Rfam assigns this 70-nucleotide RNA sequence from Chenopodium quinoa to the family "small nucleolar RNA snoR117". It is annotated as a C/D-box small nucleolar RNA. Pairs were carried over by alignment from the consensus structure, which was predicted with RNAalifold. Its family is annotated with RNA processing and nucleolus in the Gene Ontology. On this family, see Chen and Wu, Nucleic Acids Res 2009: "Mining small RNA sequencing data: a new approach to identify small nucleolar RNAs in Arabidopsis".
[Rfam]
RNA sequence: GGCCAAGGAUUUAUCAAAUUGUCCGUACCAUCUGAAAUUGAUGAUAUUUUUAACAAAUUUUCUGAGGCCA
Numbered sequence: 001g002g003c004c005a006a007g008g009a010u011u012u013a014u015c016a017a018a019u020u021g022u023c024c025g026u027a028c029c030a031u032c033u034g035a036a037a038u039u040g041a042u043g044a045u046a047u048u049u050u051u052a053a054c055a056a057a058u059u060u061u062c063u064g065a066g067g068c069c070a
Stems, first nucleotide, its partner, number of pairs: 001069004